[Rfam]
RNA sequence: AAAACGCUGUCGAGUUUGCCUUUCGGCAAACGUCAUGAUUGUAUGCCGUUUUUCACUGCGUUGCAAAACGGCGGAAAUUCUGCAAUCCUCAGAAUUUGAAAAUUCUUGCGGUUGCAGAAUUUAUAG
Numbered sequence: 001a002a003a004a005c006g007c008u009g010u011c012g013a014g015u016u017u018g019c020c021u022u023u024c025g026g027c028a029a030a031c032g033u034c035a036u037g038a039u040u041g042u043a044u045g046c047c048g049u050u051u052u053u054c055a056c057u058g059c060g061u062u063g064c065a066a067a068a069c070g071g072c073g074g075a076a077a078u079u080c081u082g083c084a085a086u087c088c089u090c091a092g093a094a095u096u097u098g099a100a101a102a103u104u105c106u107u108g109c110g111g112u113u114g115c116a117g118a119a120u121u122u123a124u125a126g
Stems, first nucleotide, its partner, number of pairs: 012034002014031007045072008077120009087111002091106006
This 126-nucleotide RNA from Treponema pedis belongs to the Rfam family "TD-1 RNA". A search with the family's covariance model found it, with a score of 79 bits. It is annotated as a cis-regulatory element. NCBI's taxonomy places the organism under Bacteria, Pseudomonadati, Spirochaetota, Treponemataceae, Treponema pedis. A reference for the family is Weinberg et al. (2007), "Identification of 22 candidate structured RNAs in bacteria using the CMfinder comparative genomics pipeline", Nucleic Acids Res. Pairs were carried over by alignment from the consensus structure, which is taken from published work.